[Rfam]
Nucleotides: 079
Base pairs, nucleotide, nucleotide: 001079002078004076006074008072009071010070011069012068013067015065016064017063018062022057023056024055025053026052027051028050029049030048031047
Number, partner (000 for none) and nucleotide at each position: 001079u002078u003000a004076a005000u006074u007000u008072a009071a010070g011069u012068u013067a014000u015065u016064g017063u018062g019000g020000g021000u022057u023056u024055a025053c026052a027051c028050u029049u030048u031047g032000a033000a034000a035000a036000u037000u038000g039000a040000a041000c042000c043000c044000u045000c046000a047031c048030a049029a050028a051027g052026u053025g054000a055024u056023g057022g058000a059000a060000c061000a062018u063017a064016c065015a066000u067013u068012g069011a070010u071009u072008u073000u074006a075000u076004u077000c078002a079001a
MIR5269 microRNA precursor family: a 79-nucleotide RNA sequence from Medicago truncatula. NCBI's taxonomy places the organism under Eukaryota, Euphyllophyta, Magnoliopsida, Papilionoideae, Medicago. Rfam links the family to the GO terms miRNA-mediated post-transcriptional gene silencing and RISC complex.